[Rfam]
RNA sequence: CGUUCUCUGUGAUACGCGACAGUUGGCUAAGUAUUUUCAUGAGCCUUAAAAACAUCCUGGGAAUAUGACCUGCUGACAGUGUGCAUGUCCGUCUUGAGCGGAAAGCCUAAAGCAGCAAUGAAGUUCCCCCUUGAACCGCAAGGUUCAGGAACUGAUGUCGACAUCGCUAUUUGCGGGUUCGCC
Numbered sequence: 001c002g003u004u005c006u007c008u009g010u011g012a013u014a015c016g017c018g019a020c021a022g023u024u025g026g027c028u029a030a031g032u033a034u035u036u037u038c039a040u041g042a043g044c045c046u047u048a049a050a051a052a053c054a055u056c057c058u059g060g061g062a063a064u065a066u067g068a069c070c071u072g073c074u075g076a077c078a079g080u081g082u083g084c085a086u087g088u089c090c091g092u093c094u095u096g097a098g099c100g101g102a103a104a105g106c107c108u109a110a111a112g113c114a115g116c117a118a119u120g121a122a123g124u125u126c127c128c129c130c131u132u133g134a135a136c137c138g139c140a141a142g143g144u145u146c147a148g149g150a151a152c153u154g155a156u157g158u159c160g161a162c163a164u165c166g167c168u169a170u171u172u173g174c175g176g177g178u179u180c181g182c183c
Stems, first nucleotide, its partner, number of pairs: 001181002005177001007176005012170003017166003036151003040147006059128003063124002066121001068119001071117004077112001083106002088102005
Shown here is a 183-nucleotide RNA from a Solemya elarraichensis gill symbiont, a member of the family "6S / SsrS RNA". The literature on the family includes a 2000 paper in Cell by Wassarman and Storz, "6S RNA regulates E. coli RNA polymerase activity". Rfam's curators write: E. coli 6S RNA was the first non coding RNA to be sequenced, but its function was unknown until recently. It consists of 184 nucleotides that fold into an extended hairpin structure with a large single-stranded internal bulge. The family's consensus secondary structure is taken from published work.